Shown here is a 229-nucleotide sequence from Ancylobacter defluvii, a member of the family "permuted transfer-messenger RNA".
Pairs were carried over by alignment from the consensus structure, which is taken from published work.
Rfam's curators write: Bacterial tmRNA, also known as 10Sa RNA or SsrA, is named for its dual tRNA and mRNA-like properties.
A search with the family's covariance model found it, with a score of 144 bits.
Rfam classes the family as a non-coding RNA gene.
The literature on the family includes a 2010 paper in RNA Biol by Mao et al., "Variations on the tmRNA gene".
RNA sequence: GGCGAUAAACGGCCAUCGGAAUAAACCCUUCGGACCCGGGGGCAGUACCCGGCGCCUCCACCCGAGCCCAGAUGCGCGCAGCGCUUGCGCGGUGCUGGGCUCGGGCGGGGGCGAAACAGGAUCGACGAGGGCGUAAAGGGUGGGCUUUUGCUCGGCAUGGUACCGCCGUCAUCGGACCGAACAUAUAGUUGCCAACGACAACUAUGCUCCGGUUGCUCAGGCCGCGUGA
Numbered sequence: 001g002g003c004g005a006u007a008a009a010c011g012g013c014c015a016u017c018g019g020a021a022u023a024a025a026c027c028c029u030u031c032g033g034a035c036c037c038g039g040g041g042g043c044a045g046u047a048c049c050c051g052g053c054g055c056c057u058c059c060a061c062c063c064g065a066g067c068c069c070a071g072a073u074g075c076g077c078g079c080a081g082c083g084c085u086u087g088c089g090c091g092g093u094g095c096u097g098g099g100c101u102c103g104g105g106c107g108g109g110g111g112c113g114a115a116a117c118a119g120g121a122u123c124g125a126c127g128a129g130g131g132c133g134u135a136a137a138g139g140g141u142g143g144g145c146u147u148u149u150g151c152u153c154g155g156c157a158u159g160g161u162a163c164c165g166c167c168g169u170c171a172u173c174g175g176a177c178c179g180a181a182c183a184u185a186u187a188g189u190u191g192c193c194a195a196c197g198a199c200a201a202c203u204a205u206g207c208u209c210c211g212g213u214u215g216c217u218c219a220g221g222c223c224g225c226g227u228g229a
Base pairs, nucleotide, nucleotide: 001152002151003150004149005148014142015141016140017139026131027130028129030128031127032126036052037051038050039049040048053113054112055111056110057109058108059107153168154167155166156165